[Rfam]
RNA sequence: GUGGGUAUAGCUCAGCUGGUAGAGCGUCUGGUUGUGGUCCAGAAGGUCGCGGGUUCGAGCCCCGUUACUCACC
Numbered sequence: 001g002u003g004g005g006u007a008u009a010g011c012u013c014a015g016c017u018g019g020u021a022g023a024g025c026g027u028c029u030g031g032u033u034g035u036g037g038u039c040c041a042g043a044a045g046g047u048c049g050c051g052g053g054u055u056c057g058a059g060c061c062c063c064g065u066u067a068c069u070c071a072c073c
Stems, first nucleotide, its partner, number of pairs: 001072007010025004027043005049065005
The family of this 73-nucleotide RNA sequence is "tRNA". Gene Ontology term of the family: triplet codon-amino acid adaptor activity. It scores 65 bits against the family's covariance model.